[Rfam]
THF (Tetrahydrofolate) riboswitch aptamer: a 104-nucleotide sequence from Carnobacterium sp. AT7. Rfam's curators put it in the seed alignment. Rfam describes the family as follows. Tetrahydrofolate (THF) riboswitch was first reported for Ames et al. as an RNA motif in 5' untranslated (5'-UTR)regions of folate transport and biosynthesis genes in Firmicutes genomes. On this family, see Ames et al., Chem Biol 2010: "A eubacterial riboswitch class that senses the coenzyme tetrahydrofolate".
RNA sequence: AUCAGAGUAGGAAAUAAAGCGUUAAGUGUCGCUGGGAUGGGAUGUUGCCCGCGAACGAAAGAUUGUUUAGGCAAUUUGCGGUUUUGUUUCUGCAUUCGCUGCAU
Numbered sequence: 001a002u003c004a005g006a007g008u009a010g011g012a013a014a015u016a017a018a019g020c021g022u023u024a025a026g027u028g029u030c031g032c033u034g035g036g037a038u039g040g041g042a043u044g045u046u047g048c049c050c051g052c053g054a055a056c057g058a059a060a061g062a063u064u065g066u067u068u069a070g071g072c073a074a075u076u077u078g079c080g081g082u083u084u085u086g087u088u089u090c091u092g093c094a095u096u097c098g099c100u101g102c103a104u
Stems, first nucleotide, its partner, number of pairs: 001104002003101003010091010020080003026056002029054004034050003040097005060077006